[Rfam]
RNA sequence: ACUUAUAUAAACUAACAUAUUGGGUUAGUGUUUCUACCUCUUAACCAAUUAAGAGACUAUAAGU
Numbered sequence: 001a002c003u004u005a006u007a008u009a010a011a012c013u014a015a016c017a018u019a020u021u022g023g024g025u026u027a028g029u030g031u032u033u034c035u036a037c038c039u040c041u042u043a044a045c046c047a048a049u050u051a052a053g054a055g056a057c058u059a060u061a062a063g064u
Stems, first nucleotide, its partner, number of pairs: 001064007008036001011029006022046002030037001038055007
Rfam assigns this 64-nucleotide RNA from Spiroplasma taiwanense to the family "2dG-I riboswitch aptamer (M. florum)". The match comes from Rfam's covariance-model search (65 bits). Rfam links the family to the GO terms regulation of DNA-templated transcription, termination and deoxyribonucleoside binding. Its Rfam clan is "Purine riboswitches". The literature on the family includes a 2007 paper in Proc Natl Acad Sci U S A by Kim et al., "Guanine riboswitch variants from Mesoplasma florum selectively recognize 2'-deoxyguanosine".